[Rfam]
RNA sequence: ACGAACCUCGGGGGAGAGAGCGACGGGCCAGCGGUGCAAACCGACGGUCGCGGUCGACGCCGAAGGAGCAACCGCCCCGGAAACUCUCAGGCGAACGUACUCCGAGGUGAGG
Numbered sequence: 001a002c003g004a005a006c007c008u009c010g011g012g013g014g015a016g017a018g019a020g021c022g023a024c025g026g027g028c029c030a031g032c033g034g035u036g037c038a039a040a041c042c043g044a045c046g047g048u049c050g051c052g053g054u055c056g057a058c059g060c061c062g063a064a065g066g067a068g069c070a071a072c073c074g075c076c077c078c079g080g081a082a083a084c085u086c087u088c089a090g091g092c093g094a095a096c097g098u099a100c101u102c103c104g105a106g107g108u109g110a111g112g
Stems, first nucleotide, its partner, number of pairs: 006107008021056003059092003062088002066086003072080002